[Rfam]
Record summary:
Shown here is a 92-nucleotide RNA sequence from Aegilops tauschii, a member of the family "MIR5200 microRNA precursor family". Lineage of the source: Eukaryota > Streptophyta > commelinids > Triticinae > Aegilops tauschii. The family has 5 seed sequences and 52 matches in Rfam 15.1. The family's consensus secondary structure was predicted with RNAalifold. The match comes from Rfam's covariance-model search (72 bits).
RNA sequence: UAAAAAAGCCUUAGAGAAUAUCUACACUAGUAAUGUCCAUUUUCAUUAUGGAAAUGCACUUACAAGUGUAGAUACUCCCUAAGGCUUCAAAU
Numbered sequence: 001u002a003a004a005a006a007a008g009c010c011u012u013a014g015a016g017a018a019u020a021u022c023u024a025c026a027c028u029a030g031u032a033a034u035g036u037c038c039a040u041u042u043u044c045a046u047u048a049u050g051g052a053a054a055u056g057c058a059c060u061u062a063c064a065a066g067u068g069u070a071g072a073u074a075c076u077c078c079c080u081a082a083g084g085c086u087u088c089a090a091a092u
Stems, first nucleotide, its partner, number of pairs: 006087009016077002019074008031062003035059002038056005